[Rfam]
RNA sequence: UGAAACCACAAGGGGAGCUGUAUUGGCUGAGAGUGAACAAUUUGUUCUAACCCUUAUAACCUGUUAGGUAGUACUAGCGUAGGGAUGUGGCUUUCGUGAUGG
Numbered sequence: 001u002g003a004a005a006c007c008a009c010a011a012g013g014g015g016a017g018c019u020g021u022a023u024u025g026g027c028u029g030a031g032a033g034u035g036a037a038c039a040a041u042u043u044g045u046u047c048u049a050a051c052c053c054u055u056a057u058a059a060c061c062u063g064u065u066a067g068g069u070a071g072u073a074c075u076a077g078c079g080u081a082g083g084g085a086u087g088u089g090g091c092u093u094u095c096g097u098g099a100u101g102g
Stems, first nucleotide, its partner, number of pairs: 006090005011054004016048001017027004035047004060083004064077004